Shown here is a 119-nucleotide RNA sequence from Kocuria sp. WRN011, a member of the family "SAM (S-adenosyl methionine) riboswitch aptamer".
RNA sequence: AAUCACGAGUUCCGGUGCGAAGCCCUGGCUGGCCGGACGGCAACCCUCAGACGCUGUCGUGGGGUGCCCCAGGUGAUGAUUCGGCCCGUGAUCAGUACCGGUACGGGCAAGGACGGCGU
Numbered sequence: 001a002a003u004c005a006c007g008a009g010u011u012c013c014g015g016u017g018c019g020a021a022g023c024c025c026u027g028g029c030u031g032g033c034c035g036g037a038c039g040g041c042a043a044c045c046c047u048c049a050g051a052c053g054c055u056g057u058c059g060u061g062g063g064g065u066g067c068c069c070c071a072g073g074u075g076a077u078g079a080u081u082c083g084g085c086c087c088g089u090g091a092u093c094a095g096u097a098c099c100g101g102u103a104c105g106g107g108c109a110a111g112g113a114c115g116g117c118g119u
Base pairs, nucleotide, nucleotide: 001081002080003079004078009038011037012036013035014034015033016032021030022029039068040067041066044064045063046062048059084108085107086106087105088104089103091102092101093100
Overview: Clan: SAM clan. NCBI's taxonomy places the organism under Bacteria, Bacillati, Actinomycetota, Micrococcales, Kocuria. Pairs were carried over by alignment from the consensus structure, which is taken from published work.